[Rfam]
RNA: mir-395 microRNA precursor family
Organism: Gossypium raimondii
RNA sequence: CUAUUCCUUGGAGUUCCCUUGAACACUUCACUGAGGCUAUUUUAAGACCCUUAACAGAGGGAAUUGUGUCCUACUGAAGUGUUUGGGGUAACUCUGGGGGAUAG
Numbered sequence: 001c002u003a004u005u006c007c008u009u010g011g012a013g014u015u016c017c018c019u020u021g022a023a024c025a026c027u028u029c030a031c032u033g034a035g036g037c038u039a040u041u042u043u044a045a046g047a048c049c050c051u052u053a054a055c056a057g058a059g060g061g062a063a064u065u066g067u068g069u070c071c072u073a074c075u076g077a078a079g080u081g082u083u084u085g086g087g088g089u090a091a092c093u094c095u096g097g098g099g100g101a102u103a104g
Stems, first nucleotide, its partner, number of pairs: 005100005011094005017088004022084002024081007032073002035070001